The record is a 76-nucleotide RNA sequence from Rhamnella rubrinervis, which matches "small nucleolar RNA snoR117" in Rfam. It scores 49 bits against the family's covariance model. The family has 6 seed sequences and 419 matches in Rfam 15.1. Rfam links the family to the GO terms RNA processing and nucleolus. The organism belongs to Rhamnella, within Eukaryota. Rfam classes the family as a C/D-box small nucleolar RNA. A reference for the family is Chen and Wu (2009), "Mining small RNA sequencing data: a new approach to identify small nucleolar RNAs in Arabidopsis", Nucleic Acids Res.
RNA sequence: GGCCUGUGAUGCUUAAAAAUUUGUCCGUACCUUUGAAAGCUCUGAUGUACUUCUAUUCUAUUGUUUUCUGAGGCCU
Numbered sequence: 001g002g003c004c005u006g007u008g009a010u011g012c013u014u015a016a017a018a019a020u021u022u023g024u025c026c027g028u029a030c031c032u033u034u035g036a037a038a039g040c041u042c043u044g045a046u047g048u049a050c051u052u053c054u055a056u057u058c059u060a061u062u063g064u065u066u067u068c069u070g071a072g073g074c075c076u
Stems, first nucleotide, its partner, number of pairs: 001075004